The family of this 290-nucleotide RNA from Dactylonectria estremocensis is "Fungal signal recognition particle RNA".
Lineage of the source: Eukaryota > Dikarya > saccharomyceta > Hypocreales > Dactylonectria.
Pairs were carried over by alignment from the consensus structure, which is taken from published work.
The family has 50 seed sequences and 748 matches in Rfam 15.1.
Gene Ontology terms of the family: SRP-dependent cotranslational protein targeting to membrane, signal sequence recognition, signal recognition particle, plasma membrane targeting and signal recognition particle, endoplasmic reticulum targeting.
By type it is a non-coding RNA gene.
The literature on the family includes a 2002 paper in Curr Opin Struct Biol by Wild et al., "Towards the structure of the mammalian signal recognition particle".
RNA sequence: GACUGUAAUGGUCCAACGGCGAAGACGUUCAAUCACGCUCAGCCGUCCACCCCGAUUUCCAUCAGAACCCCCUCGUUCGCGCCCCGCCCGAACGCCGCGGUGGCCGCCCACUCGCACGGGAAACCUGCGAUGCUGGUAACCACUGUUGCGGCCCUCAAGCAAUGGAGAUGACCCUUGAGGGAGGACUCACUCUGCAGAGAGCUUUCCCCCGUCGCGUGGCGGGUGGGAUCACGCAGUGCGAGGGGCCUCGGGCUGGACAAUGGCUGAGAUAGAACAGCUCAACGCUUCUU
Dot-bracket structure: (((.......)))....((((..(..((((.(((.((((..(..(((((.(((((...............((((((.((((.((((((((.((((.((((.((..(((((.(((((.((....)))))))))..)))..)).............(...)....(((((.....(((....(((......)))....)))...))))).)))).))))..))))))))....))).).))))))....))))).)))))..)))).).))).))))....)..))))....